[Rfam]
RNA sequence: GGUUGUUGAAGUGAGAAAUGGCUCCUCAUGCGCUGAUAAUCAGUAAAUAGAGAUGCAGGGUACGCCGACCUGCCAAUAAUC
Numbered sequence: 001g002g003u004u005g006u007u008g009a010a011g012u013g014a015g016a017a018a019u020g021g022c023u024c025c026u027c028a029u030g031c032g033c034u035g036a037u038a039a040u041c042a043g044u045a046a047a048u049a050g051a052g053a054u055g056c057a058g059g060g061u062a063c064g065c066c067g068a069c070c071u072g073c074c075a076a077u078a079a080u081c
Stems, first nucleotide, its partner, number of pairs: 001081008011029005019067004031050001032044004055073005
Dot-bracket structure: ((((((((..(((((...[[[[..))))).(((((.....)))).....)....(((((....]]]].)))))))))))))

skipping-rope RNA: an 81-nucleotide RNA. It is one of the family's seed sequences.